The record is a 62-nucleotide RNA, which matches "L31-Gammaproteobacteria ribosomal protein leader" in Rfam. Its Rfam clan is "Ribosomal Protein L31 Leader clan". It is one of the family's seed sequences. Rfam classes the family as a cis-regulatory leader.
Nucleotides: 062
Stems, first nucleotide, its partner, number of pairs: 001047005007041002011036004015031003
Number, partner (000 for none) and nucleotide at each position: 001047a002046a003045u004044g005043c006000g007041g008040u009000g010000c011036c012035c013034g014033g015031c016030a017029g018000c019000g020000a021000u022000u023000c024000a025000a026000u027000a028000a029017c030016u031015g032000a033014u034013c035012g036011g037000g038000u039000g040008g041007c042000g043005g044004c045003a046002u047001u048000g049000c050000c051000u052000g053000a054000a055000a056000a057000u058000g059000a060000g061000g062000u